[Rfam]
This 650-nucleotide sequence from Phyllostomus discolor belongs to the Rfam family "c-sis internal ribosome entry site (IRES)". This family represents the c-sis 5'-UTR which contains three modules that can individually mediate internal ribosome entry. However, the full length sequence is required for maximal IRES activity. It is thought that the three IRES elements are somehow responsive to cellular changes and act to regulate the level of translation. Lineage of the source: Eukaryota > Eumetazoa > Vertebrata > Boreoeutheria > Phyllostomus. Rfam links the family to the GO term ribosome binding. Rfam 15.1 lists 123 matches to the family in 119 species. The base pairs follow the family's consensus structure, which was predicted with ILM.
RNA sequence: CGGAGCAGCCGCAGCUCGCAGCCGGCAGAAGACUCCCCGAGUGGGAAGCAGGCGGGCGGACUGACCGACGGACUUGCGCCACGUCCACCUGUCUGCUGCGUCCGGUUCCAGAGAGCAGCGGGCGCGCAGCACGCGGAGCAGCCGUGCCCGCCGCCCGGGCCCGCACACCGCACCCGGAGCAGCCGUGCCCGCCGCCCGGACUCCGCUCCAGGGCGCACACGCUCCGGCCCCCCCCACCCGGCCCGGGCGGGAGUUUGCACCUCUCGCUGCUUGGGUAUUCGGGCCGCCGCUGCAAAGCCAACUUCGGAAAAAGUUUUUUGGGGGUGACUUCGGUUUUGAGGCGCCCAGCUCUGCGCUUUCUGACUUCAAGGGCCUUCCCAGAAAAUGUUGCAAAAAAGCUAAGCCGGCGGGCAGCGGAGAACGCCUUUAGCGGGCGAGAGAAGACAACCAUCGGCUGCCGCGUUCUUUUUCCUCUCGGAGGUUGGAGUCCCCUGGGCGCCCCCACACGGCUAGACACCUCGGCUGGUUCGCGACGCAGCCCCCCGGCUGUGGAUGCUCGCUCGGGCUCGGGAUCCGCCCAGGUAGCGGCCUCGGACCCUUGCCCCGCGCCCAGGCUCUUCCCAGUCCCCCAACGACGACGGAGUCGGGGC
Numbered sequence: 001c002g003g004a005g006c007a008g009c010c011g012c013a014g015c016u017c018g019c020a021g022c023c024g025g026c027a028g029a030a031g032a033c034u035c036c037c038c039g040a041g042u043g044g045g046a047a048g049c050a051g052g053c054g055g056g057c058g059g060a061c062u063g064a065c066c067g068a069c070g071g072a073c074u075u076g077c078g079c080c081a082c083g084u085c086c087a088c089c090u091g092u093c094u095g096c097u098g099c100g101u102c103c104g105g106u107u108c109c110a111g112a113g114a115g116c117a118g119c120g121g122g123c124g125c126g127c128a129g130c131a132c133g134c135g136g137a138g139c140a141g142c143c144g145u146g147c148c149c150g151c152c153g154c155c156c157g158g159g160c161c162c163g164c165a166c167a168c169c170g171c172a173c174c175c176g177g178a179g180c181a182g183c184c185g186u187g188c189c190c191g192c193c194g195c196c197c198g199g200a201c202u203c204c205g206c207u208c209c210a211g212g213g214c215g216c217a218c219a220c221g222c223u224c225c226g227g228c229c230c231c232c233c234c235c236a237c238c239c240g241g242c243c244c245g246g247g248c249g250g251g252a253g254u255u256u257g258c259a260c261c262u263c264u265c266g267c268u269g270c271u272u273g274g275g276u277a278u279u280c281g282g283g284c285c286g287c288c289g290c291u292g293c294a295a296a297g298c299c300a301a302c303u304u305c306g307g308a309a310a311a312a313g314u315u316u317u318u319u320g321g322g323g324g325u326g327a328c329u330u331c332g333g334u335u336u337u338g339a340g341g342c343g344c345c346c347a348g349c350u351c352u353g354c355g356c357u358u359u360c361u362g363a364c365u366u367c368a369a370g371g372g373c374c375u376u377c378c379c380a381g382a383a384a385a386u387g388u389u390g391c392a393a394a395a396a397a398g399c400u401a402a403g404c405c406g407g408c409g410g411g412c413a414g415c416g417g418a419g420a421a422c423g424c425c426u427u428u429a430g431c432g433g434g435c436g437a438g439a440g441a442a443g444a445c446a447a448c449c450a451u452c453g454g455c456u457g458c459c460g461c462g463u464u465c466u467u468u469u470u471c472c473u474c475u476c477g478g479a480g481g482u483u484g485g486a487g488u489c490c491c492c493u494g495g496g497c498g499c500c501c502c503c504a505c506a507c508g509g510c511u512a513g514a515c516a517c518c519u520c521g522g523c524u525g526g527u528u529c530g531c532g533a534c535g536c537a538g539c540c541c542c543c544c545g546g547c548u549g550u551g552g553a554u555g556c557u558c559g560c561u562c563g564g565g566c567u568c569g570g571g572a573u574c575c576g577c578c579c580a581g582g583u584a585g586c587g588g589c590c591u592c593g594g595a596c597c598c599u600u601g602c603c604c605c606g607c608g609c610c611c612a613g614g615c616u617c618u619u620c621c622c623a624g625u626c627c628c629c630c631a632a633c634g635a636c637g638a639c640g641g642a643g644u645c646g647g648g649g650c
Stems, first nucleotide, its partner, number of pairs: 002299002005293005011287002014284005020279002027264003031260001033215001035213003039209001041208001043206001045204001048201001051108001052106002054103004061098001063096001065095001067093005075083002113197001115195002118192009127177001129175001218257002221254005227248004233241002301314004321622004326617001328614003332610003340561004348556002350553006360546003370541004390399002403435003407431002411428001413426002416422001438536001440534001443531001445530001446528005451522004455513002457510004462505002464486003468481005487497004563604004569598003573595004580591004627649004632644002
Dot-bracket structure: .((.(((((.((.(((((.((.....(((.(.(.(((.(.(.(.(..(..(((((((...(.(.(.(((((...((.....)).....))))).)).).)))).)).)....(.((.((((((((((.(.............................................).)......))))))))).)).)...)..).).)).))).)..((.(((((.((((..((.....))...)))).))))).))..).))).............))))))).)).)))))....)).((((......))))......((((.(.(((.(((.....((((....((((((((....(((.......((((................((......))...(((.((..(.((.(.....)..)).).)).)))..(.(..(.((((((((((((((((.(((((.(((((....)))))..)))((((...))))......)).)))).)).....)))).))))).))..).).))))..))).)))))).)).)))).((((..(((.((((...((((....)))))))))))..))))...))).)))..).))))....((((.((.........)).)))).